[Rfam]
RNA sequence: UUGAAAAAAGGCAAACCCGCUCGAAAGUCGGGGACGCAAAGCCACGGGUCUAACCCAUCGCUGCCGCGAUGACACGACAGCCGGGUUGCUCGAG
Numbered sequence: 001u002u003g004a005a006a007a008a009a010g011g012c013a014a015a016c017c018c019g020c021u022c023g024a025a026a027g028u029c030g031g032g033g034a035c036g037c038a039a040a041g042c043c044a045c046g047g048g049u050c051u052a053a054c055c056c057a058u059c060g061c062u063g064c065c066g067c068g069a070u071g072a073c074a075c076g077a078c079a080g081c082c083g084g085g086u087u088g089c090u091c092g093a094g
Base pairs, nucleotide, nucleotide: 001094003091004090011037012036016032017031018030019029022027035080040087041086042085043084045083046082047081048078049077050076
Dot-bracket structure: (.((......((...((((..(....).))))..[))..((((.((((((.........................))).])))))))..))..)